[Rfam]
RNA sequence: GGUUCGGGAGCAGCCGGUGGGACGGCAUGCAAGAAUUGGACCUUACCUCCUUCAUUCGUGAGCGGUGCGCAGCCGGAGCCCGACGGCAUGGCGCG
Numbered sequence: 001g002g003u004u005c006g007g008g009a010g011c012a013g014c015c016g017g018u019g020g021g022a023c024g025g026c027a028u029g030c031a032a033g034a035a036u037u038g039g040a041c042c043u044u045a046c047c048u049c050c051u052u053c054a055u056u057c058g059u060g061a062g063c064g065g066u067g068c069g070c071a072g073c074c075g076g077a078g079c080c081c082g083a084c085g086g087c088a089u090g091g092c093g094c095g
Base pairs, nucleotide, nucleotide: 001042002041003040004039005038010030011029012028013026014025015024016023066095067094068093069092070091072087073086074085075084
This 95-nucleotide sequence from Actibacterium lipolyticum belongs to the Rfam family "Rhodo-rpoB RNA".